[Rfam]
RNA: FMN riboswitch aptamer (RFN element)
Organism: Corynebacterium otitidis
RNA sequence: CGUAAAUCUCAGGGCGGGGUGGAAUUCCCCACCGGCGGUAGCGCGGGAGCGAUGAUUCCCGCGGAGCCCGCGACCCCCGUCGCCGCGACGGUUUCCCGGCGGCGGGGCUGACCCGGUCGAAGUCCGGGGCCGACGGUCACAGUCCGGAUGGGAGAGAUGAAAG
Dot-bracket structure: ..(..(((((......(((.......))).[[((((((...........................[[))))...(((((((((((...........)))))))))))....(((((.......)))))]])).(((.....]]))).......)))))..)..
Numbered sequence: 001c002g003u004a005a006a007u008c009u010c011a012g013g014g015c016g017g018g019g020u021g022g023a024a025u026u027c028c029c030c031a032c033c034g035g036c037g038g039u040a041g042c043g044c045g046g047g048a049g050c051g052a053u054g055a056u057u058c059c060c061g062c063g064g065a066g067c068c069c070g071c072g073a074c075c076c077c078c079g080u081c082g083c084c085g086c087g088a089c090g091g092u093u094u095c096c097c098g099g100c101g102g103c104g105g106g107g108c109u110g111a112c113c114c115g116g117u118c119g120a121a122g123u124c125c126g127g128g129g130c131c132g133a134c135g136g137u138c139a140c141a142g143u144c145c146g147g148a149u150g151g152g153a154g155a156g157a158u159g160a161a162a163g
Stems, first nucleotide, its partner, number of pairs: 003161001006158005017029003031143002033132002035071004066130002075107011112128005134146003